[Rfam]
Nucleotides: 153
Stems, first nucleotide, its partner, number of pairs: 004021002007018003034066005043059003047055001075147002079143003083138004088132009
Number, partner (000 for none) and nucleotide at each position: 001000u002000a003000u004021u005020g006000g007018c008017u009016u010000a011000g012000u013000u014000a015000g016009g017008a018007g019000g020005c021004g022000u023000a024000a025000a026000u027000c028000a029000a030000u031000u032000c033000u034066g035065a036064u037063c038062a039000u040000u041000c042000a043059a044058u045057a046000c047055u048000u049000u050000u051000c052000u053000g054000u055047a056000u057045u058044g059043u060000u061000u062038u063037g064036a065035u066034u067000c068000g069000u070000g071000g072000c073000u074000u075147c076146u077000u078000u079143g080142g081141u082000u083138u084137u085136u086135g087000u088132g089131g090130a091129g092128a093127a094126g095125c096124u097000u098000c099000u100000u101000u102000g103000u104000g105000u106000u107000u108000u109000c110000u111000u112000a113000a114000u115000u116000c117000a118000a119000a120000u121000c122000a123000a124096a125095g126094c127093u128092u129091c130090u131089u132088c133000c134000c135086c136085a137084a138083a139000a140000a141081g142080u143079u144000u145000c146076a147075g148000a149000c150000a151000g152000a153000a
Shown here is a 153-nucleotide sequence from Arabidopsis thaliana, a member of the family "Small nucleolar RNA U19". It scores 55 bits against the family's covariance model. On this family, see Marker et al., Curr Biol 2002: "Experimental RNomics: identification of 140 candidates for small non-messenger RNAs in the plant Arabidopsis thaliana". Gene Ontology terms of the family: RNA processing and nucleolus. NCBI's taxonomy places the organism under Eukaryota, Embryophyta, Tracheophyta, Brassicales, Arabidopsis.